The family of this 188-nucleotide sequence from Nocardioides cavernaquae is "c-di-AMP riboswitch aptamer (ydaO/yuaA leader)". Gene Ontology terms of the family: cyclic-di-AMP binding and regulation of gene expression. The source organism's lineage runs through Bacteria, Bacillati, Actinomycetota, Nocardioidaceae and Nocardioides.
[Rfam]
RNA sequence: CUUCGCGACACGCCUAAUCCCGUCCGCGCGAAGAGGAAGCCAACCCGACGGACGGGAGCGGGGGACCCAGGUCUCCACCGGACGCGGCCAGCACCGCCGGCCACCUCCUGGGGUUGAGCCGGAGCAAUCCGGCCGGGCACCUACCAGCCCGAACCCGACAGCUAACUUCGUCGGCGCGUGGAGGAUCA
Numbered sequence: 001c002u003u004c005g006c007g008a009c010a011c012g013c014c015u016a017a018u019c020c021c022g023u024c025c026g027c028g029c030g031a032a033g034a035g036g037a038a039g040c041c042a043a044c045c046c047g048a049c050g051g052a053c054g055g056g057a058g059c060g061g062g063g064g065a066c067c068c069a070g071g072u073c074u075c076c077a078c079c080g081g082a083c084g085c086g087g088c089c090a091g092c093a094c095c096g097c098c099g100g101c102c103a104c105c106u107c108c109u110g111g112g113g114u115u116g117a118g119c120c121g122g123a124g125c126a127a128u129c130c131g132g133c134c135g136g137g138c139a140c141c142u143a144c145c146a147g148c149c150c151g152a153a154c155c156c157g158a159c160a161g162c163u164a165a166c167u168u169c170g171u172c173g174g175c176g177c178g179u180g181g182a183g184g185a186u187c188a
Stems, first nucleotide, its partner, number of pairs: 011176004018057009058171006068110004111156003119132004135150004